[Rfam]
RNA sequence: CUCCCCGAAAUGCAUUUAGGUGCAGCGUCGCAUGUUUCUUGCCGGAGGUAGAGCACUGGAUGGUCUAGGGGCCCCACAAGGUUACCGAAAUCAACCAAACUCCGAAUGCCGGUAAGUGAGAGUGCGGCAGUGAGACUGCGGGGGAUAAGCUUCGUAGUCGAGAGGGAAACAGCCCAGAUCGCCAGCUAAGGCCCCUAAGUGUGUGCUAAGUGGGAAAGGAUGUGGGGUCGCUUAGACAACCAGGAGGUUGGCUUAGAAGCAGCCACCCUUUAAAGAGUGCGUAAUAGCUCACUGGUCAAGUGGUUCUGCGCCGACAAUGUAGCGGGGCUUAAGCACACCGCCGAAGCUGUGGCAUUCCGUCAUGAGAUUCCCUUCGGGGCAGUCGACGGGAUGGGUAGGGGAGCGUCGUGCAGCGAGCGAAGCGGCGGAGUGAUCCAGCCGUGGACGCUGCACGAGUGAGAAU
Numbered sequence: 001c002u003c004c005c006c007g008a009a010a011u012g013c014a015u016u017u018a019g020g021u022g023c024a025g026c027g028u029c030g031c032a033u034g035u036u037u038c039u040u041g042c043c044g045g046a047g048g049u050a051g052a053g054c055a056c057u058g059g060a061u062g063g064u065c066u067a068g069g070g071g072c073c074c075c076a077c078a079a080g081g082u083u084a085c086c087g088a089a090a091u092c093a094a095c096c097a098a099a100c101u102c103c104g105a106a107u108g109c110c111g112g113u114a115a116g117u118g119a120g121a122g123u124g125c126g127g128c129a130g131u132g133a134g135a136c137u138g139c140g141g142g143g144g145a146u147a148a149g150c151u152u153c154g155u156a157g158u159c160g161a162g163a164g165g166g167a168a169a170c171a172g173c174c175c176a177g178a179u180c181g182c183c184a185g186c187u188a189a190g191g192c193c194c195c196u197a198a199g200u201g202u203g204u205g206c207u208a209a210g211u212g213g214g215a216a217a218g219g220a221u222g223u224g225g226g227g228u229c230g231c232u233u234a235g236a237c238a239a240c241c242a243g244g245a246g247g248u249u250g251g252c253u254u255a256g257a258a259g260c261a262g263c264c265a266c267c268c269u270u271u272a273a274a275g276a277g278u279g280c281g282u283a284a285u286a287g288c289u290c291a292c293u294g295g296u297c298a299a300g301u302g303g304u305u306c307u308g309c310g311c312c313g314a315c316a317a318u319g320u321a322g323c324g325g326g327g328c329u330u331a332a333g334c335a336c337a338c339c340g341c342c343g344a345a346g347c348u349g350u351g352g353c354a355u356u357c358c359g360u361c362a363u364g365a366g367a368u369u370c371c372c373u374u375c376g377g378g379g380c381a382g383u384c385g386a387c388g389g390g391a392u393g394g395g396u397a398g399g400g401g402a403g404c405g406u407c408g409u410g411c412a413g414c415g416a417g418c419g420a421a422g423c424g425g426c427g428g429a430g431u432g433a434u435c436c437a438g439c440c441g442u443g444g445a446c447g448c449u450g451c452a453c454g455a456g457u458g459a460g461a462a463u
Base pairs, nucleotide, nucleotide: 001403002402003401004400005399006398011024012023013022014021015020026130027128028127029126030125031124032123033122036121038116039115040114041113042112043111044110045109051103052101053100057097058096059095061093062092063091064090068086069085070083071082072081073080134159135158136157137156138155139154140153141152142151143150164175165174166173179352180351181350182349184348185347186346190342191341192340199339201338202337203336204335205334206333218312219311222309223308224307225306226305227304228303229302230301231300239296240295241294242293243292245269246268247267250264251263252262270274275290279288280287353393354392355391356390357389358388359387360386404458406455407454408453409452410451411450412449413448414447415446422442423441424440425439426438427436428435429434

Record summary
The record is a 463-nucleotide part of an RNA from Pseudonocardiaceae bacterium YIM PH 21723, which matches "Bacterial large subunit ribosomal RNA" in Rfam. Lineage of the source: Bacteria > Bacillati > Actinomycetota > Actinomycetes > Pseudonocardiaceae.